[Rfam]
RNA: Small nucleolar RNA SNORA8
RNA sequence: AGCACUGUGUGGUAUCUGCAGCCAGCUGCUCAAUGAGCUGGUUUGUUCAAAAGCCAGUGCAAGACCAAGUCAACACUUGGCAUCGUUGGUCUCCAUGCUGCAUGUGUUUGGAGUCCUGGUAUUUUUGUUGAGACAUUU
Numbered sequence: 001a002g003c004a005c006u007g008u009g010u011g012g013u014a015u016c017u018g019c020a021g022c023c024a025g026c027u028g029c030u031c032a033a034u035g036a037g038c039u040g041g042u043u044u045g046u047u048c049a050a051a052a053g054c055c056a057g058u059g060c061a062a063g064a065c066c067a068a069g070u071c072a073a074c075a076c077u078u079g080g081c082a083u084c085g086u087u088g089g090u091c092u093c094c095a096u097g098c099u100g101c102a103u104g105u106g107u108u109u110g111g112a113g114u115c116c117u118g119g120u121a122u123u124u125u126u127g128u129u130g131a132g133a134c135a136u137u138u
Stems, first nucleotide, its partner, number of pairs: 002060006015053001017051001018046004023041001024039004064126001067123002070119003079108005
Dot-bracket structure: .((((((.......(.(((((.(((((........)))).).))))....).).))))))...(..((.(((......(((((....................)))))........)))..))..)............